[Rfam]
TPP riboswitch aptamer (THI element): a 95-nucleotide sequence from Thalassobaculum fulvum. Lineage of the source: Bacteria > Pseudomonadati > Pseudomonadota > Rhodospirillales > Thalassobaculum. It scores 64 bits against the family's covariance model.
RNA sequence: AGAGACGACACGGGGUGCCCGGGCAACCGGGCUGAGAUCACACCCGCAGAACCUGAUCCGGGUCAUGCCGGCGGAGGGAGUCGUCGUCGAUCGGC
Numbered sequence: 001a002g003a004g005a006c007g008a009c010a011c012g013g014g015g016u017g018c019c020c021g022g023g024c025a026a027c028c029g030g031g032c033u034g035a036g037a038u039c040a041c042a043c044c045c046g047c048a049g050a051a052c053c054u055g056a057u058c059c060g061g062g063u064c065a066u067g068c069c070g071g072c073g074g075a076g077g078g079a080g081u082c083g084u085c086g087u088c089g090a091u092c093g094g095c
Stems, first nucleotide, its partner, number of pairs: 005084005011046004016040001017032005052077003058071004